RNA: MIR820 microRNA precursor family
Organism: Oryza sativa
RNA sequence: UGCGUCGGCCUCGUGGAUGGACCAGGAGCUCGACAUUCCUUAAGGUCGUUCUUUCCGACCCAUACAAGGUUCCGCUGCCUGCAUUGUUCCAAGAGUGUCUUGGACAAAAGCAGGAAGUGGAACCUUGUUAAGGUCGGAACGAACUGCCUUAAGGAAGUCGAUGCUCCAGGUCCGUCCACGAGGACGACGCA
Numbered sequence: 001u002g003c004g005u006c007g008g009c010c011u012c013g014u015g016g017a018u019g020g021a022c023c024a025g026g027a028g029c030u031c032g033a034c035a036u037u038c039c040u041u042a043a044g045g046u047c048g049u050u051c052u053u054u055c056c057g058a059c060c061c062a063u064a065c066a067a068g069g070u071u072c073c074g075c076u077g078c079c080u081g082c083a084u085u086g087u088u089c090c091a092a093g094a095g096u097g098u099c100u101u102g103g104a105c106a107a108a109a110g111c112a113g114g115a116a117g118u119g120g121a122a123c124c125u126u127g128u129u130a131a132g133g134u135c136g137g138a139a140c141g142a143a144c145u146g147c148c149u150u151a152a153g154g155a156a157g158u159c160g161a162u163g164c165u166c167c168a169g170g171u172c173c174g175u176c177c178a179c180g181a182g183g184a185c186g187a188c189g190c191a
Base pairs, nucleotide, nucleotide: 001191002190003189004188005187006186007185009183010182011181012180013179014178015177016176017175018174019173020172021171022170023169025167026166027165028164029163030161031160032159033158034157036156037155038154039153040152041151042150043149044148045147046146048144049143050142051141053139054138055137056136057135058134059133060132064128065127066126067125068124069123070122071121072120073119074118075117078114079113080112081111082110084108085107088104089103090102091101092100093099094098